[Rfam]
Record summary:
This 544-nucleotide part of an RNA belongs to the Rfam family "Eukaryotic small subunit ribosomal RNA". A reference for the family is Cannone et al. (2002), "The comparative RNA web (CRW) site: an online database of comparative sequence and structure information for ribosomal, intron, and other RNAs", BMC Bioinformatics. The base pairs follow the family's consensus structure, which is taken from published work. The family is grouped with related families in Rfam's "SSU clan".
RNA sequence: UUAGAUAACAGGUCAACCUGGGCUCUGCCAUUGUUUAGAAGAUUCAUGAUAACUUGACGGAUCGAAAAGCCUGCCGGUGACGCAUCAUUCAAAUUUAUGCCCUAUCAACUUUUGAUGGUAGGAUAGAGGCCUACCAUGGUGGUGAUGGGUGAUGGAGAAUUAGGGUUCAAUUCCGAAGAGGGAGCCUGAGAAACGGCUACCACAUCCAAGGAAGGCAGCAGGGGCGCAAAUUACCCAAUCUUGACACGGGGAGGCAGUGACAAUAAAUAACAAUACCGGGGUCAUUGAGAAUGGUAAUUGGCGAAUUUAUUAUAUUUUUGAAAGACGAACAACUGCAAAAGAAUUUGCCAAGGAUGUUUUCAUUAAUCAAGAACGAAAGUUGGGGGCUCGAAGACGAUCAGAUAGCAUCCUAGACUCAAUCAUAAACGAUGCCAACCAAGUAUCAGCGGAUGUUGCUUUUUGGACACUGUCGGCACCUUAUGAGAAAUUUAAAAUCUUUGGGUUCUCGGAGGAUUAUGAUCACAAAGUUGAAACUUAAAGGAAU
Numbered sequence: 001u002u003a004g005a006u007a008a009c010a011g012g013u014c015a016a017c018c019u020g021g022g023c024u025c026u027g028c029c030a031u032u033g034u035u036u037a038g039a040a041g042a043u044u045c046a047u048g049a050u051a052a053c054u055u056g057a058c059g060g061a062u063c064g065a066a067a068a069g070c071c072u073g074c075c076g077g078u079g080a081c082g083c084a085u086c087a088u089u090c091a092a093a094u095u096u097a098u099g100c101c102c103u104a105u106c107a108a109c110u111u112u113u114g115a116u117g118g119u120a121g122g123a124u125a126g127a128g129g130c131c132u133a134c135c136a137u138g139g140u141g142g143u144g145a146u147g148g149g150u151g152a153u154g155g156a157g158a159a160u161u162a163g164g165g166u167u168c169a170a171u172u173c174c175g176a177a178g179a180g181g182g183a184g185c186c187u188g189a190g191a192a193a194c195g196g197c198u199a200c201c202a203c204a205u206c207c208a209a210g211g212a213a214g215g216c217a218g219c220a221g222g223g224g225c226g227c228a229a230a231u232u233a234c235c236c237a238a239u240c241u242u243g244a245c246a247c248g249g250g251g252a253g254g255c256a257g258u259g260a261c262a263a264u265a266a267a268u269a270a271c272a273a274u275a276c277c278g279g280g281g282u283c284a285u286u287g288a289g290a291a292u293g294g295u296a297a298u299u300g301g302c303g304a305a306u307u308u309a310u311u312a313u314a315u316u317u318u319u320g321a322a323a324g325a326c327g328a329a330c331a332a333c334u335g336c337a338a339a340a341g342a343a344u345u346u347g348c349c350a351a352g353g354a355u356g357u358u359u360u361c362a363u364u365a366a367u368c369a370a371g372a373a374c375g376a377a378a379g380u381u382g383g384g385g386g387c388u389c390g391a392a393g394a395c396g397a398u399c400a401g402a403u404a405g406c407a408u409c410c411u412a413g414a415c416u417c418a419a420u421c422a423u424a425a426a427c428g429a430u431g432c433c434a435a436c437c438a439a440g441u442a443u444c445a446g447c448g449g450a451u452g453u454u455g456c457u458u459u460u461u462g463g464a465c466a467c468u469g470u471c472g473g474c475a476c477c478u479u480a481u482g483a484g485a486a487a488u489u490u491a492a493a494a495u496c497u498u499u500g501g502g503u504u505c506u507c508g509g510a511g512g513a514u515u516a517u518g519a520u521c522a523c524a525a526a527g528u529u530g531a532a533a534c535u536u537a538a539a540g541g542a543a544u
Stems, first nucleotide, its partner, number of pairs: 010506002020504001022374001024372002030367003272359002274356002276353002281349001283347002291319001293317002298309001300307001336341001379420006388414002393409002396406001431503003435495001438478001440476001443473002446470004452465003482489002509536003518529003